[Rfam]
RNA sequence: CUCUUAUCCCGAGCUGGCGGAGGGACAGGCCCAAUGAAGCCCAGCAACCUGCUAAUGUUCUUUAAUAGCAAAGGUGCUAACCUGACGCAAGGAUUGAUUCCUUGAACGAUAAGAG
Numbered sequence: 001c002u003c004u005u006a007u008c009c010c011g012a013g014c015u016g017g018c019g020g021a022g023g024g025a026c027a028g029g030c031c032c033a034a035u036g037a038a039g040c041c042c043a044g045c046a047a048c049c050u051g052c053u054a055a056u057g058u059u060c061u062u063u064a065a066u067a068g069c070a071a072a073g074g075u076g077c078u079a080a081c082c083u084g085a086c087g088c089a090a091g092g093a094u095u096g097a098u099u100c101c102u103u104g105a106a107c108g109a110u111a112a113g114a115g
Base pairs, nucleotide, nucleotide: 001115002114003113004112005111006110007109008108013042016041017040018039022032023031024030026087029083043078044077045076046075048074049073050070051069052068053067088104089103090102091101092100093099
SAM riboswitch aptamer (S box leader): a 115-nucleotide sequence from Cytobacillus dafuensis.
A search with the family's covariance model found it, with a score of 83 bits.